The record is a 160-nucleotide RNA from Gluconobacter wancherniae, which matches "FMN riboswitch aptamer (RFN element)" in Rfam. Pairs were carried over by alignment from the consensus structure, which is taken from published work. The RFN element is a highly conserved domain that is found frequently in the 5'-untranslated regions of prokaryotic mRNAs that encode for flavin mononucleotide (FMN) biosynthesis and transport proteins. It scores 112 bits against the family's covariance model.

RNA sequence: AGACGUUCUCGGGGCGGGGUGAAACUCCCCACCGGCGGUAUUGGCAGGAUUCGUUCUGCCUGAGCCCGCGAGCGCCUUCUUUCCUUCAGGAAGGGAGGGUCUAGCAGAUCUGGUGAGACUCCAGAGCCGACGGUCAUAGUCCGGAUGAGAGAGAACGCAG
Numbered sequence: 001a002g003a004c005g006u007u008c009u010c011g012g013g014g015c016g017g018g019g020u021g022a023a024a025c026u027c028c029c030c031a032c033c034g035g036c037g038g039u040a041u042u043g044g045c046a047g048g049a050u051u052c053g054u055u056c057u058g059c060c061u062g063a064g065c066c067c068g069c070g071a072g073c074g075c076c077u078u079c080u081u082u083c084c085u086u087c088a089g090g091a092a093g094g095g096a097g098g099g100u101c102u103a104g105c106a107g108a109u110c111u112g113g114u115g116a117g118a119c120u121c122c123a124g125a126g127c128c129g130a131c132g133g134u135c136a137u138a139g140u141c142c143g144g145a146u147g148a149g150a151g152a153g154a155a156c157g158c159a160g
Stems, first nucleotide, its partner, number of pairs: 004157007017029003031140002033129002035069004064127002072105002109125005131143003
Dot-bracket structure: ...(((((((......(((.......))).[[((((((.........................[[))))..((..............................))...(((((.......)))))]])).(((.....]]))).......)))))))...